[Rfam]
RNA sequence: UAUGUUCUUCAGGGCGGGGUGAAAGUCCCCACCGGCGGUAAAGCCCGCGAGCUAUAAUACGGUUUGUCCGUUUUUUAGCAUGAUUCGGUGAAACUCCGAAGCCGACAGUACAGUCUGGAUGGAAGAAGAUACAU
Dot-bracket structure: .....(((((......(((.......))).[[((((((....[[))))..(((.......................)))....(((((.......)))))]])).(((....]]))).......))))).....
RNA: FMN riboswitch aptamer (RFN element)